[Rfam]
RNA sequence: ACAACGAAAAGGCAAAGCUAUGGAAACGUGGUUACGCAAAGCUUUAGGGGCUAACGCAUGAUAUUGCUAUGCCAGCCAGCUGCCGAA
Numbered sequence: 001a002c003a004a005c006g007a008a009a010a011g012g013c014a015a016a017g018c019u020a021u022g023g024a025a026a027c028g029u030g031g032u033u034a035c036g037c038a039a040a041g042c043u044u045u046a047g048g049g050g051c052u053a054a055c056g057c058a059u060g061a062u063a064u065u066g067c068u069a070u071g072c073c074a075g076c077c078a079g080c081u082g083c084c085g086a087a
Stems, first nucleotide, its partner, number of pairs: 012037002017032006040081004047077002049073003056067003
RNA: c-di-GMP-I riboswitch aptamer
Organism: Bacillus sp. V5-8f